[Rfam]
RNA sequence: UUUUUAUCCAGAGAGGCGGAGGGACUGGCCCAAUGAAGCCCGGCAACCGGUUUGUCCUGUAAGAGGUCAAACAAGGUGCCAAUUCCUGCAGUGCUUCUAGCUGAAGCGCUGAGAGAUAAGAA
Number, nucleotide and partner (000 for none) at each position: 001u122002u121003u120004u119005u118006a117007u116008c115009c000010a000011g000012a000013g041014a000015g040016g039017c038018g000019g000020a000021g031022g030023g029024a000025c088026u000027g086028g085029c023030c022031c021032a000033a000034u000035g000036a000037a000038g017039c016040c015041c013042g080043g079044c078045a077046a000047c076048c075049g072050g000051u070052u069053u000054g000055u000056c000057c000058u000059g000060u000061a000062a000063g000064a000065g000066g000067u000068c000069a052070a051071a000072c049073a000074a000075g048076g047077u045078g044079c043080c042081a000082a000083u000084u114085c028086c027087u000088g025089c111090a110091g109092u108093g107094c106095u105096u104097c103098u000099a000100g000101c000102u000103g097104a096105a095106g094107c093108g092109c091110u090111g089112a000113g000114a084115g008116a007117u006118a005119a004120g003121a002122a001